[Rfam]
RNA sequence: AAGAGCCUAGAGCCAAUAAAGACUGAGAAAAUUGAUUCAAGAAAAAA
Numbered sequence: 001a002a003g004a005g006c007c008u009a010g011a012g013c014c015a016a017u018a019a020a021g022a023c024u025g026a027g028a029a030a031a032u033u034g035a036u037u038c039a040a041g042a043a044a045a046a047a
Base pairs, nucleotide, nucleotide: 007041008040010038011037012036014034015033016032017031

The family of this 47-nucleotide RNA from Cephalotus follicularis is "Plastid-rpl16 group II-D1 intron". The base pairs follow the family's consensus structure, which was predicted with LocARNA. Plastid-rpl16 is a non-coding RNA (ncRNA) recognised in plastids. It was recognised in and intronic region of a ribosome rpl16 gene. The source organism's lineage runs through Eukaryota, Mesangiospermae, fabids, Cephalotaceae and Cephalotus.